Rfam assigns this 163-nucleotide RNA sequence from Streptomyces lunaelactis to the family "c-di-AMP riboswitch aptamer (ydaO/yuaA leader)". Lineage of the source: Bacteria > Actinomycetes > Kitasatosporales > Streptomycetaceae > Streptomyces.
[Rfam]
RNA sequence: GGGCGGCCUGCGCCGAAUUCGGGCUUUCGUCAAGGAAGUUCGGAACCGGGGACCCAACAUGCACAACCGGGGUGAAUCGGACCUGCGUCAUCGGGUCCGUAGGGCGAUCUUCCGUUCCGCCCGAACCCGACAGCUAACCCGGUAGGCGGUCCACGGAAGAAGG
Numbered sequence: 001g002g003g004c005g006g007c008c009u010g011c012g013c014c015g016a017a018u019u020c021g022g023g024c025u026u027u028c029g030u031c032a033a034g035g036a037a038g039u040u041c042g043g044a045a046c047c048g049g050g051g052a053c054c055c056a057a058c059a060u061g062c063a064c065a066a067c068c069g070g071g072g073u074g075a076a077u078c079g080g081a082c083c084u085g086c087g088u089c090a091u092c093g094g095g096u097c098c099g100u101a102g103g104g105c106g107a108u109c110u111u112c113c114g115u116u117c118c119g120c121c122c123g124a125a126c127c128c129g130a131c132a133g134c135u136a137a138c139c140c141g142g143u144a145g146g147c148g149g150u151c152c153a154c155g156g157a158a159g160a161a162g163g
Stems, first nucleotide, its partner, number of pairs: 011148004018044011045143006055069001070128003078099008102122004